Overview: Rfam assigns this 80-nucleotide RNA from Conger conger to the family "Small nucleolar RNA SNORD83". The family's RNA type in Rfam is C/D-box small nucleolar RNA. For this family Rfam cites "Characterisation of the U83 and U84 small nucleolar RNAs: two novel 2'-O-ribose methylation guide RNAs that lack complementarities to ribosomal RNAs" (Jady and Kiss, Nucleic Acids Res, 2000).
RNA sequence: GCCACAUGAUGAUGUGAUAUAGACUGCAUUAGCACUCUGUGCAAAGAUGACCUGUUAUCUAUCACCCAUGUCUGAUGGCU
Number, nucleotide and partner (000 for none) at each position: 001g079002c078003c077004a076005c000006a000007u000008g000009a000010u000011g000012a000013u000014g000015u000016g000017a000018u000019a000020u000021a000022g000023a000024c000025u000026g000027c000028a000029u000030u000031a000032g042033c041034a040035c039036u000037c000038u000039g035040u034041g033042c032043a000044a000045a000046g000047a000048u000049g000050a000051c000052c000053u000054g000055u000056u000057a000058u000059c000060u000061a000062u000063c000064a000065c000066c000067c000068a000069u000070g000071u000072c000073u000074g000075a000076u004077g003078g002079c001080u000